[Rfam]
RNA sequence: ACUCGAGCACGAUCUUCACCGUGAUGUGGAGAACCGACUCGAAGUAUCAAUCCUGAGGGA
Numbered sequence: 001a002c003u004c005g006a007g008c009a010c011g012a013u014c015u016u017c018a019c020c021g022u023g024a025u026g027u028g029g030a031g032a033a034c035c036g037a038c039u040c041g042a043a044g045u046a047u048c049a050a051u052c053c054u055g056a057g058g059g060a
Base pairs, nucleotide, nucleotide: 001045002044003043004041005040006039007038013032014031015030016029017028018027019026

Rfam assigns this 60-nucleotide RNA from Corynebacterium diphtheriae to the family "L31-Corynebacteriaceae ribosomal protein leader". Pairs were carried over by alignment from the consensus structure, which is taken from published work. It is one of the family's seed sequences. The source organism's lineage runs through Bacteria, Bacillati, Corynebacteriaceae, Corynebacterium and Corynebacterium diphtheriae bv. intermedius.